[Rfam]
RNA sequence: AGAUGCCCUUAUGUGGCAAGACUUGCUUCAGUGGAGCUUUGGUGCUCACUGAGUUUUCCCCCUGAAUGUGUCUCU
Number, nucleotide and partner (000 for none) at each position: 001a073002g072003a071004u070005g069006c068007c000008c000009u065010u064011a063012u000013g061014u000015g059016g058017c000018a056019a000020g055021a054022c053023u000024u000025g000026c000027u000028u052029c051030a050031g049032u048033g047034g046035a000036g043037c042038u000039u000040u000041g000042g037043u036044g000045c000046u034047c033048a032049c031050u030051g029052a028053g022054u021055u020056u018057u000058c016059c015060c000061c013062c000063u011064g010065a009066a000067u000068g006069u005070g004071u003072c002073u001074c000075u000